Description:
The record is an 80-nucleotide sequence from Fusibacter sp. A1, which matches "Glycine riboswitch aptamer" in Rfam.
[Rfam]
RNA sequence: CUCUGGAGAGUCCCGAAGAAGUAAACGGGCACCGGCGGGGCAAGGUCUUAGGACUAAAACUCUCAGGUUAGGUUACAGAG
Numbered sequence: 001c002u003c004u005g006g007a008g009a010g011u012c013c014c015g016a017a018g019a020a021g022u023a024a025a026c027g028g029g030c031a032c033c034g035g036c037g038g039g040g041c042a043a044g045g046u047c048u049u050a051g052g053a054c055u056a057a058a059a060c061u062c063u064c065a066g067g068u069u070a071g072g073u074u075a076c077a078g079a080g
Stems, first nucleotide, its partner, number of pairs: 001080005012029004031068003034064002038062003044055002
The match comes from Rfam's covariance-model search (42 bits).